[Rfam]
RNA: MIR535 microRNA precursor family
RNA sequence: AUAUAUAUAUGACAAUGAGAGAGAGCACACUUGUACACAUCCAUGCCCUUGCAUGAAUGGAAACAGGUGUGCUCUCUCUCAUUGUCAAAUAAUG
Numbered sequence: 001a002u003a004u005a006u007a008u009a010u011g012a013c014a015a016u017g018a019g020a021g022a023g024a025g026c027a028c029a030c031u032u033g034u035a036c037a038c039a040u041c042c043a044u045g046c047c048c049u050u051g052c053a054u055g056a057a058u059g060g061a062a063a064c065a066g067g068u069g070u071g072c073u074c075u076c077u078c079u080c081a082u083u084g085u086c087a088a089a090u091a092a093u094g
Base pairs, nucleotide, nucleotide: 010087011086012085013084014083016081017080020077021076023074025072026071027070028069029068030067031066032065033064034063
Dot-bracket structure: .........(((((.((..((.(.((((((((((............................)))))))))).).))..)).))))).......